[Rfam]
RNA sequence: CCGAACCGAUACCGGAGGACAGGUCAUUUUACCUGUGGGGAUAUACCUGCCUGAGCAGGCGGCUGCAUUCGUGCAUCACCGUACCCCGUCAUACCUCAUCCGCGCAUUCUCCGGCGCACCGGUAUCGUUCA
Numbered sequence: 001c002c003g004a005a006c007c008g009a010u011a012c013c014g015g016a017g018g019a020c021a022g023g024u025c026a027u028u029u030u031a032c033c034u035g036u037g038g039g040g041a042u043a044u045a046c047c048u049g050c051c052u053g054a055g056c057a058g059g060c061g062g063c064u065g066c067a068u069u070c071g072u073g074c075a076u077c078a079c080c081g082u083a084c085c086c087c088g089u090c091a092u093a094c095c096u097c098a099u100c101c102g103c104g105c106a107u108u109c110u111c112c113g114g115c116g117c118a119c120c121g122g123u124a125u126c127g128u129u130c131a
Base pairs, nucleotide, nucleotide: 003130004129005128007127008126009125010124011123012122013121014120020035021034022033023032024031037087038086039085040084046059047058048057049056050055060081061080062079064075065074066073067072
RNA: EFASI RNA